The family of this 59-nucleotide RNA sequence is "Actino-ugpB RNA". It is one of the family's seed sequences.

RNA sequence: GUCGAAAGGGCACCUAGGGGUGCGGCGGCCAAAAGGUAGGCCGACGGCAUAGGAGAAAG
Numbered sequence: 001g002u003c004g005a006a007a008g009g010g011c012a013c014c015u016a017g018g019g020g021u022g023c024g025g026c027g028g029c030c031a032a033a034a035g036g037u038a039g040g041c042c043g044a045c046g047g048c049a050u051a052g053g054a055g056a057a058a059g
Base pairs, nucleotide, nucleotide: 010023011022012021013020014019026043027042028041029040030039